[Rfam]
This 75-nucleotide RNA from Alligator mississippiensis belongs to the Rfam family "Small nucleolar RNA SNORD26". For this family Rfam cites "A mammalian gene with introns instead of exons generating stable RNA products" (Tycowski et al., Nature, 1996). Rfam classes the family as a C/D-box small nucleolar RNA. The match comes from Rfam's covariance-model search (62 bits).
Nucleotides: 075
Base pairs, nucleotide, nucleotide: 001074002073003072004071
Number, partner (000 for none) and nucleotide at each position: 001074c002073c003072a004071c005000a006000a007000g008000g009000a010000c011000g012000a013000c014000a015000c016000c017000a018000g019000c020000g021000a022000a023000c024000u025000c026000u027000c028000u029000c030000u031000u032000g033000c034000u035000g036000a037000u038000g039000c040000u041000u042000c043000a044000g045000u046000g047000g048000a049000g050000a051000a052000a053000g054000c055000c056000u057000u058000u059000a060000c061000c062000a063000g064000a065000u066000u067000c068000u069000g070000a071004g072003u073002g074001g075000c